[Rfam]
RNA sequence: AGCAAAGUGAUGAGCUAAUGGGUCUGAAUUUUAUGUGGAAUCACAUAAAACAAUAGUCUUCGAAGUUCUCUGAUUGCU
Numbered sequence: 001a002g003c004a005a006a007g008u009g010a011u012g013a014g015c016u017a018a019u020g021g022g023u024c025u026g027a028a029u030u031u032u033a034u035g036u037g038g039a040a041u042c043a044c045a046u047a048a049a050a051c052a053a054u055a056g057u058c059u060u061c062g063a064a065g066u067u068c069u070c071u072g073a074u075u076g077c078u
Stems, first nucleotide, its partner, number of pairs: 001078005
RNA: Small nucleolar RNA R160
Organism: Nelumbo nucifera